[Rfam]
RNA sequence: AGAAUCCAAUCUACGCAAAGUUUAGCCAACAGCGUGGAACCAAAUCUCACAUGUAAGGAGGUAACGAAUUAUGUGAAGCUGAGAGGCGGGAUGUGUUGGGUUGUAACGUAAGUGAAGGAUAUAAGCUCCGAAAUUAUCAAUAUAGUAGAGGCUGACAUGCUUCAUUUCAUGGAAAGCAGAAUGUGUAGUUGCGAUAAGGCAAGCAACUAUUGCUCUACCGGAGUCUCAGGCCA
Number, nucleotide and partner (000 for none) at each position: 001a000002g000003a000004a000005u000006c000007c000008a000009a000010u000011c000012u036013a035014c034015g033016c032017a000018a000019a000020g030021u029022u028023u202024a000025g200026c199027c000028a022029a021030c020031a000032g016033c015034g014035u013036g012037g000038a000039a000040c000041c099042a000043a000044a000045u084046c083047u082048c000049a000050c075051a074052u073053g072054u071055a070056a069057g000058g000059a000060g065061g000062u000063a000064a000065c060066g000067a000068a000069u056070u055071a054072u053073g052074u051075g050076a000077a000078g000079c000080u000081g000082a047083g046084a045085g000086g000087c000088g000089g000090g000091a000092u000093g000094u000095g000096u000097u000098g000099g041100g000101u000102u000103g000104u000105a000106a000107c000108g000109u000110a000111a000112g000113u000114g000115a000116a000117g000118g000119a000120u000121a000122u000123a000124a000125g224126c223127u222128c221129c220130g219131a000132a000133a000134u000135u000136a000137u000138c000139a000140a000141u000142a000143u000144a000145g218146u217147a216148g215149a214150g213151g177152c176153u175154g000155a000156c171157a170158u169159g168160c000161u000162u000163c000164a000165u000166u000167u000168c159169a158170u157171g156172g000173a000174a000175a153176g152177c151178a000179g000180a000181a000182u212183g211184u000185g210186u209187a208188g207189u206190u205191g204192c203193g000194a000195u000196a000197a000198g000199g026200c025201a000202a023203g192204c191205a190206a189207c188208u187209a186210u185211u183212g182213c150214u149215c148216u147217a146218c145219c130220g129221g128222a127223g126224u125225c000226u000227c000228a000229g000230g000231c000232c000233a000
The family of this 233-nucleotide sequence from Pseudolycoriella hygida is "Group II catalytic intron D1-D4-6". The source organism's lineage runs through Eukaryota, Pancrustacea, Dicondylia, Pterygota and Pseudolycoriella. Group II introns are found in rRNA, tRNA and mRNA of organelles in fungi, plants and protists, and also in mRNA in bacteria. The pairing is the family consensus, mapped onto this sequence.